Rfam assigns this 507-nucleotide part of an RNA from Aplysia californica to the family "Eukaryotic large subunit ribosomal RNA". Gene Ontology terms of the family: ribosome and structural constituent of ribosome. The family is grouped with related families in Rfam's "LSU clan".
[Rfam]
RNA sequence: GGUAGUAGCAAAUAUUCAAACGAGAACUUUGAAGACUGAAGUGGAGAAGGGUUCCAUGUGAACAGCAGUUGAACAUGGGUCAGUCGGUCCUAAGAGAUAGGAAAACUCCGUUCUGACCUCGGGGCACUCUUUCCAUCCACAUCCGCAUCUACAAAAAUGGGUGUUUUGUGUUUGUUUGGUGGCCUCCAACUAUCGAAAGGGAAUCGGGUUAAUAUUCCCGAACCUGGACACGGAGAUUGGCUCUCAGGAGCCACGUGCGGUAACGCAAACGAAGUGGGGGACGUCGGCGGGAGCCCCGGGAAGAGUUCUCUUUUCUUUGUAAGGAACCCCCUCCCUGGAAUCGGCUUGCCCGGAGAUAGGGACCAAGGUUCCGUAAAGCACCGCGGCUCUUGCGGUGUCCGGUGCGCUCUCGUCGGCCCUUGAAAACCCCACGGAGACGGUGUGAAUUUCGUGCCAGGCCGUACCCAUAUCCGCAGCAGGUCUCCGAGGUGCACAGCCUCUAGUCGA
Numbered sequence: 001g002g003u004a005g006u007a008g009c010a011a012a013u014a015u016u017c018a019a020a021c022g023a024g025a026a027c028u029u030u031g032a033a034g035a036c037u038g039a040a041g042u043g044g045a046g047a048a049g050g051g052u053u054c055c056a057u058g059u060g061a062a063c064a065g066c067a068g069u070u071g072a073a074c075a076u077g078g079g080u081c082a083g084u085c086g087g088u089c090c091u092a093a094g095a096g097a098u099a100g101g102a103a104a105a106c107u108c109c110g111u112u113c114u115g116a117c118c119u120c121g122g123g124g125c126a127c128u129c130u131u132u133c134c135a136u137c138c139a140c141a142u143c144c145g146c147a148u149c150u151a152c153a154a155a156a157a158u159g160g161g162u163g164u165u166u167u168g169u170g171u172u173u174g175u176u177u178g179g180u181g182g183c184c185u186c187c188a189a190c191u192a193u194c195g196a197a198a199g200g201g202a203a204u205c206g207g208g209u210u211a212a213u214a215u216u217c218c219c220g221a222a223c224c225u226g227g228a229c230a231c232g233g234a235g236a237u238u239g240g241c242u243c244u245c246a247g248g249a250g251c252c253a254c255g256u257g258c259g260g261u262a263a264c265g266c267a268a269a270c271g272a273a274g275u276g277g278g279g280g281a282c283g284u285c286g287g288c289g290g291g292a293g294c295c296c297c298g299g300g301a302a303g304a305g306u307u308c309u310c311u312u313u314u315c316u317u318u319g320u321a322a323g324g325a326a327c328c329c330c331c332u333c334c335c336u337g338g339a340a341u342c343g344g345c346u347u348g349c350c351c352g353g354a355g356a357u358a359g360g361g362a363c364c365a366a367g368g369u370u371c372c373g374u375a376a377a378g379c380a381c382c383g384c385g386g387c388u389c390u391u392g393c394g395g396u397g398u399c400c401g402g403u404g405c406g407c408u409c410u411c412g413u414c415g416g417c418c419c420u421u422g423a424a425a426a427c428c429c430c431a432c433g434g435a436g437a438c439g440g441u442g443u444g445a446a447u448u449u450c451g452u453g454c455c456a457g458g459c460c461g462u463a464c465c466c467a468u469a470u471c472c473g474c475a476g477c478a479g480g481u482c483u484c485c486g487a488g489g490u491g492c493a494c495a496g497c498c499u500c501u502a503g504u505c506g507a
Stems, first nucleotide, its partner, number of pairs: 015033006034505004043485004049465002054078006063071002085461003089200002094194002096112003100109003121187003204221005224457004247450004252444001256267004274432006283417004288412007296402003300318005323372005332362006341353004379397007471480002487499004
The family's consensus secondary structure is taken from published work. The sequence is in the family's curated seed alignment. The source organism's lineage runs through Eukaryota, Metazoa, Bilateria, Euthyneura and Aplysia.